This 116-nucleotide RNA from Anisakis simplex belongs to the Rfam family "Potassium channel RNA editing signal". The family's consensus secondary structure is taken from published work. NCBI's taxonomy places the organism under Eukaryota, Protostomia, Nematoda, Rhabditida, Anisakis simplex complex. It scores 60 bits against the family's covariance model. For this family Rfam cites "Control of human potassium channel inactivation by editing of a small mRNA hairpin" (Bhalla et al., Nat Struct Mol Biol, 2004).
RNA sequence: CUGGGUUAUGGAGAUAUGGUACCAGCGACAGUGAUGGGUAAGGUAGUAGGAGGUGUUUGUUCAUUGAGUGGUGUACUAGUCAUUGCUCUUCCCGUUCCAGUUAGUUCGUUGCGUUC
Numbered sequence: 001c002u003g004g005g006u007u008a009u010g011g012a013g014a015u016a017u018g019g020u021a022c023c024a025g026c027g028a029c030a031g032u033g034a035u036g037g038g039u040a041a042g043g044u045a046g047u048a049g050g051a052g053g054u055g056u057u058u059g060u061u062c063a064u065u066g067a068g069u070g071g072u073g074u075a076c077u078a079g080u081c082a083u084u085g086c087u088c089u090u091c092c093c094g095u096u097c098c099a100g101u102u103a104g105u106u107c108g109u110u111g112c113g114u115u116c
Stems, first nucleotide, its partner, number of pairs: 004116002007113001009111003013102003018097002021095002037077004050062002